[Rfam]
RNA sequence: GUUGAAGUCGCUGGAGGCAGCGGUUCAUCGAUCAAUUCCUGAGAAAUUUUCUUUCGAUGUUGGACACUUUACAUCGAAAGCAUGAAUCGAUCGAUAAACCUCUGCAUCCAGCGCUUCUCCU
Numbered sequence: 001g002u003u004g005a006a007g008u009c010g011c012u013g014g015a016g017g018c019a020g021c022g023g024u025u026c027a028u029c030g031a032u033c034a035a036u037u038c039c040u041g042a043g044a045a046a047u048u049u050u051c052u053u054u055c056g057a058u059g060u061u062g063g064a065c066a067c068u069u070u071a072c073a074u075c076g077a078a079a080g081c082a083u084g085a086a087u088c089g090a091u092c093g094a095u096a097a098a099c100c101u102c103u104g105c106a107u108c109c110a111g112c113g114c115u116u117c118u119c120c121u
Base pairs, nucleotide, nucleotide: 013109014108015107018104019103020102022100023099024098025097027095028094029093030092031091032090033089036086037085038084
RNA: MIR162_1 microRNA precursor family